[Rfam]
A member of the RNA family "Infectious bronchitis virus D-RNA" from Rhynchospora breviuscula, 37 nucleotides long. The literature on the family includes a 2001 paper in J Virol by Dalton et al., "cis-acting sequences required for coronavirus infectious bronchitis virus defective-RNA replication and packaging". A search with the family's covariance model found it, with a score of 35 bits. Rfam's curators write: This family represents a cis-regulatory element known as defective RNA or D-RNA. This region is thought to be essential for viral replication and efficient packaging. Pairs were carried over by alignment from the consensus structure, which is taken from published work.
RNA sequence: GCCAGAUAUGUAUGUAAUUUAUUACAUAUGUAUCGGC
Dot-bracket structure: ((..(((((((((((((....))))))))))))).))